Overview: This 155-nucleotide sequence from Populus tomentosa belongs to the Rfam family "MIR2912 microRNA precursor family". The base pairs follow the family's consensus structure, which was predicted with RNAalifold. Taxonomically the source falls in Populus (Eukaryota, Magnoliopsida, Gunneridae, Malpighiales). Gene Ontology terms of the family: RISC complex and miRNA-mediated post-transcriptional gene silencing. The match comes from Rfam's covariance-model search (109 bits).
RNA sequence: UCUAGAACUUGAGAUAUGGACUAAACACUGAACAAUGUCUGGGUUGCAGAACAGAUUCGGACUUCUCCGCUGUUGCUAUAAUUUGGACUUGAAAACAACCUUUUUAAAUCUUAGACUCCCAUGAAAGUUAUAGGCCUAUGUCUUAUAUUUUCAUU
Dot-bracket structure: ..(.(((.(.(((((((((.(((.(.(((.....(((...(((.(..((.(..((...((..(........(((...........)))........).))...))...).))..).))))))...)))).)))..))))))))))...))).)..